[Rfam]
RNA sequence: AUCGAGGCUAGAGUCAUGCUUGGGUAUUGGUUAUUGCCUUAGUGUGUUACAGUCCUUGAAGACUAACUGCUGACCCUAUUCACUGGCUAUGGUCCUCAUGGCACAGUCACCAGGUUAGUAACAUCC
Numbered sequence: 001a002u003c004g005a006g007g008c009u010a011g012a013g014u015c016a017u018g019c020u021u022g023g024g025u026a027u028u029g030g031u032u033a034u035u036g037c038c039u040u041a042g043u044g045u046g047u048u049a050c051a052g053u054c055c056u057u058g059a060a061g062a063c064u065a066a067c068u069g070c071u072g073a074c075c076c077u078a079u080u081c082a083c084u085g086g087c088u089a090u091g092g093u094c095c096u097c098a099u100g101g102c103a104c105a106g107u108c109a110c111c112a113g114g115u116u117a118g119u120a121a122c123a124u125c126c
Stems, first nucleotide, its partner, number of pairs: 002059005007053003012048002015046006023038004070118006082107004086102001088100005
The record is a 126-nucleotide RNA sequence from Microcebus murinus, which matches "Small nucleolar RNA SNORA3/SNORA45 family" in Rfam. Rfam links the family to the GO terms nucleolus and RNA processing. For this family Rfam cites "RNomics: an experimental approach that identifies 201 candidates for novel, small, non-messenger RNAs in mouse" (Huttenhofer et al., EMBO J, 2001). The family has 6 seed sequences and 2,080 matches in Rfam 15.1. Pairs were carried over by alignment from the consensus structure, which was predicted with RNAalifold. About the family: The members of this family belong to the H/ACA class of snoRNAs which are thought to guide the sites of modification of uridines to pseudouridines. This family includes mouse snoMBI-28 and human homologues ACA3 (SNORA3) and ACA3-2 (SNORA45).